[Rfam]
RNA sequence: AAGAGCAUCGAGUCAAUAAAGACUGAGGAGAUUGAUUCAGGAA
Numbered sequence: 001a002a003g004a005g006c007a008u009c010g011a012g013u014c015a016a017u018a019a020a021g022a023c024u025g026a027g028g029a030g031a032u033u034g035a036u037u038c039a040g041g042a043a
Stems, first nucleotide, its partner, number of pairs: 008040001010038008

This 43-nucleotide sequence from Calathodes oxycarpa belongs to the Rfam family "Plastid-rpl16 group II-D1 intron". Its family is annotated with Group II intron splicing in the Gene Ontology. A reference for the family is Richter et al. (2023), "Retrograde signaling in plants: A critical review focusing on the GUN pathway and beyond", Plant Commun. It is one of the family's seed sequences. Plastid-rpl16 is a non-coding RNA (ncRNA) recognised in plastids. It was recognised in and intronic region of a ribosome rpl16 gene.